A member of the RNA family "Pistol ribozyme" from Bacillus sp. BT1B_CT2, 64 nucleotides long. The base pairs follow the family's consensus structure, which is taken from published work. It is one of the family's seed sequences. On this family, see Teplova et al., Angew Chem Int Ed Engl 2020: "Crucial Roles of Two Hydrated Mg(2+) Ions in Reaction Catalysis of the Pistol Ribozyme". Gene Ontology term of the family: catalytic activity. NCBI's taxonomy places the organism under Bacteria, Bacillati, Caryophanales, Bacillaceae, Bacillus.

[Rfam]
RNA sequence: AGUCGUGGCGGCGACGUUAAAUAGGCAUUAAGCCGCCAGCGUUCCCCUCAUUGGGGAGGUUGCA
Numbered sequence: 001a002g003u004c005g006u007g008g009c010g011g012c013g014a015c016g017u018u019a020a021a022u023a024g025g026c027a028u029u030a031a032g033c034c035g036c037c038a039g040c041g042u043u044c045c046c047c048u049c050a051u052u053g054g055g056g057a058g059g060u061u062g063c064a
Stems, first nucleotide, its partner, number of pairs: 002015003006038006025063003032040001042058006